Gag/pol translational readthrough site: a 62-nucleotide RNA. For this family Rfam cites "RNA pseudoknots: translational frameshifting and readthrough on viral RNAs" (ten Dam et al., Virus Genes, 1990).
[Rfam]
RNA sequence: UAGGGGUGUCAGGGCUCUGGAGCCCCCCCCGAGCCCCGGCUAACUCUAUCUGUAGGGGGGCA
Numbered sequence: 001u002a003g004g005g006g007u008g009u010c011a012g013g014g015c016u017c018u019g020g021a022g023c024c025c026c027c028c029c030c031g032a033g034c035c036c037c038g039g040c041u042a043a044c045u046c047u048a049u050c051u052g053u054a055g056g057g058g059g060g061c062a
Stems, first nucleotide, its partner, number of pairs: 008041001010039001012036004017031001019030002023060006
Rfam's curators put it in the seed alignment.